[Rfam]
Rfam assigns this 408-nucleotide RNA from Corynebacterium poyangense to the family "Bacterial RNase P class A". The base pairs follow the family's consensus structure, which is taken from published work. It is annotated as a ribozyme.
RNA sequence: UGAGCCAACUGGGCGGUCGCGGCUUGUGAACUGCAUCGAGAUCGAUGUGGGCAGAAGUCGAGGAAAGUCCGGACUCCAGAGAGCACGGUGGUUGCUAACGGCAACCCGGGGCGACCCGCGGGAUAGUGCCACAGAAAAGAAACCGCUGAUGGGUAACCAUGAGUAAGGGUGAAAGGGUGCGGUAAGAGCGCACCAGCGAGUUGGGUGACCAACUCGGCUAGGUAAACCCCACCGGGAGCAAGGCAAGACGCUGCACGACGCGAUAGUGCCUGUGCAGCCGCACGGAUGGUGAAGGGCUGCUCGCCUUAAUCCGGAGGUAGCUGCUUGAGGUAAUCAGCAAUGAUUACCCUAGAUGGAUGGUCGCCACCCCACGGGGUACAGAAUCCGGCUUAUAGGUUGGCUCAUUUG
Numbered sequence: 001u002g003a004g005c006c007a008a009c010u011g012g013g014c015g016g017u018c019g020c021g022g023c024u025u026g027u028g029a030a031c032u033g034c035a036u037c038g039a040g041a042u043c044g045a046u047g048u049g050g051g052c053a054g055a056a057g058u059c060g061a062g063g064a065a066a067g068u069c070c071g072g073a074c075u076c077c078a079g080a081g082a083g084c085a086c087g088g089u090g091g092u093u094g095c096u097a098a099c100g101g102c103a104a105c106c107c108g109g110g111g112c113g114a115c116c117c118g119c120g121g122g123a124u125a126g127u128g129c130c131a132c133a134g135a136a137a138a139g140a141a142a143c144c145g146c147u148g149a150u151g152g153g154u155a156a157c158c159a160u161g162a163g164u165a166a167g168g169g170u171g172a173a174a175g176g177g178u179g180c181g182g183u184a185a186g187a188g189c190g191c192a193c194c195a196g197c198g199a200g201u202u203g204g205g206u207g208a209c210c211a212a213c214u215c216g217g218c219u220a221g222g223u224a225a226a227c228c229c230c231a232c233c234g235g236g237a238g239c240a241a242g243g244c245a246a247g248a249c250g251c252u253g254c255a256c257g258a259c260g261c262g263a264u265a266g267u268g269c270c271u272g273u274g275c276a277g278c279c280g281c282a283c284g285g286a287u288g289g290u291g292a293a294g295g296g297c298u299g300c301u302c303g304c305c306u307u308a309a310u311c312c313g314g315a316g317g318u319a320g321c322u323g324c325u326u327g328a329g330g331u332a333a334u335c336a337g338c339a340a341u342g343a344u345u346a347c348c349c350u351a352g353a354u355g356g357a358u359g360g361u362c363g364c365c366a367c368c369c370c371a372c373g374g375g376g377u378a379c380a381g382a383a384u385c386c387g388g389c390u391u392a393u394a395g396g397u398u399g400g401c402u403c404a405u406u407u408g
Stems, first nucleotide, its partner, number of pairs: 001404010011393001012365007020060006027053002065391003069388005074238004081302004086234005091105005106120001107118004121229002126227002128223003143168002145164003149160004176194006196218001197216008242322003251314003255310001293307005329348008